A member of the RNA family "SAM (S-adenosyl methionine) riboswitch aptamer" from Arthrobacter globiformis, 110 nucleotides long.
RNA sequence: GGUCCAGAGUCAGCACGCCAAGGACCGGCUCGUGCUGCGGCAACCCUCAGGCAUUUGAUGGCGGGGUGCUCCGGAAACAGACCUGGCCGCACUUGCGGCAAGUGAAUGUC
Numbered sequence: 001g002g003u004c005c006a007g008a009g010u011c012a013g014c015a016c017g018c019c020a021a022g023g024a025c026c027g028g029c030u031c032g033u034g035c036u037g038c039g040g041c042a043a044c045c046c047u048c049a050g051g052c053a054u055u056u057g058a059u060g061g062c063g064g065g066g067u068g069c070u071c072c073g074g075a076a077a078c079a080g081a082c083c084u085g086g087c088c089g090c091a092c093u094u095g096c097g098g099c100a101a102g103u104g105a106a107u108g109u110c
Stems, first nucleotide, its partner, number of pairs: 001083004009038001011037006021030002039070003044066003048061001086099005